[Rfam]
Nucleotides: 135
Stems, first nucleotide, its partner, number of pairs: 008086005013026005027057012058081007103133004108129005114124003
Number, partner (000 for none) and nucleotide at each position: 001000a002000a003000a004000a005000a006000g007000g008086g009085c010084u011083u012082c013026u014025g015024c016023u017022a018000u019000g020000u021000u022017u023016g024015g025014c026013a027057c028056a029055g030054g031053a032052g033051g034050g035049g036048u037047g038046g039000g040000g041000a042000u043000c044000a045000a046038c047037c048036a049035c050034c051033u052032c053031u054030c055029c056028u057027g058081c059080g060079g061078a062077a063076u064075c065000a066000c067000c068000a069000u070000c071000a072000a073000g074000a075064g076063a077062u078061u079060u080059c081058g082012g083011a084010a085009g086008c087000a088000c089000a090000a091000u092000u093000u094000u095000u096000a097000a098000a099000a100000c101000a102000g103133g104132g105131g106130c107000u108129g109128c110127u111126g112125g113000u114124g115123a116122u117000c118000g119000a120000u121000u122116g123115u124114c125112c126111c127110g128109g129108c130106g131105c132104c133103c134000c135000g
The record is a 135-nucleotide RNA sequence from Collichthys lucidus, which matches "U11 spliceosomal RNA" in Rfam. The literature on the family includes a 1988 paper in Proc Natl Acad Sci U S A by Montzka and Steitz, "Additional low-abundance human small nuclear ribonucleoproteins: U11, U12, etc". The organism belongs to Collichthys, within Eukaryota.